Nucleotides: 138
Base pairs, nucleotide, nucleotide: 001043002042003041004040006013016036020035021034023032024031047061048060049059050058065082066081067080068079069078088101089100090099091098110131111130112129113128114127115126116125117124118123
Number, partner (000 for none) and nucleotide at each position: 001043c002042g003041c004040g005000g006013c007000c008000u009000u010000u011000a012000c013006g014000g015000c016036g017000u018000a019000u020035u021034a022000a023032g024031c025000u026000u027000u028000c029000u030000c031024g032023c033000c034021u035020a036016u037000u038000g039000a040004u041003g042002u043001g044000g045000a046000c047061g048060u049059c050058c051000a052000a053000c054000u055000c056000c057000u058050g059049g060048a061047c062000a063000u064000c065082g066081a067080g068079u069078g070000g071000c072000u073000c074000c075000u076000g077000u078069c079068a080067c081066u082065c083000u084000g085000u086000u087000u088101g089100a090099c091098g092000c093000c094000u095000c096000c097000c098091u099090g100089u101088u102000a103000u104000c105000a106000a107000c108000u109000u110131a111130a112129g113128c114127c115126g116125c117124c118123g119000g120000u121000u122000u123118c124117g125116g126115c127114g128113g129112c130111u131110u132000u133000u134000u135000u136000g137000u138000u
Shown here is a 138-nucleotide sequence, a member of the family "Alphaproteobacterial sRNA BjrC1505". For this family Rfam cites "Small RNAs of the Bradyrhizobium/Rhodopseudomonas lineage and their analysis" (Madhugiri et al., RNA Biol, 2012). Pairs were carried over by alignment from the consensus structure. By type it is a small RNA.